RNA: Small nucleolar RNA U2-19
RNA sequence: AUUCUGGGAUGAGAAAUAGCCAAAUCUGAACACCAGAAGAUAAAACAAUCUUCCAGGUAUAUGCAGUAUUCAGUUCUGAAA
Numbered sequence: 001a002u003u004c005u006g007g008g009a010u011g012a013g014a015a016a017u018a019g020c021c022a023a024a025u026c027u028g029a030a031c032a033c034c035a036g037a038a039g040a041u042a043a044a045a046c047a048a049u050c051u052u053c054c055a056g057g058u059a060u061a062u063g064c065a066g067u068a069u070u071c072a073g074u075u076c077u078g079a080a081a
Stems, first nucleotide, its partner, number of pairs: 030060001032058003038051004